[Rfam]
RNA sequence: AAUCAAUUGAAUAGCUCGCCUCAUAUAAUUUGAGAAUAUGGCUCAAAAGUUUCUACCCAUUACCGUAAAUGAUGGACUAUGAGGGCAGAUGGAUCUAUG
Numbered sequence: 001a002a003u004c005a006a007u008u009g010a011a012u013a014g015c016u017c018g019c020c021u022c023a024u025a026u027a028a029u030u031u032g033a034g035a036a037u038a039u040g041g042c043u044c045a046a047a048a049g050u051u052u053c054u055a056c057c058c059a060u061u062a063c064c065g066u067a068a069a070u071g072a073u074g075g076a077c078u079a080u081g082a083g084g085g086c087a088g089a090u091g092g093a094u095c096u097a098u099g
Stems, first nucleotide, its partner, number of pairs: 019084007029047006057075006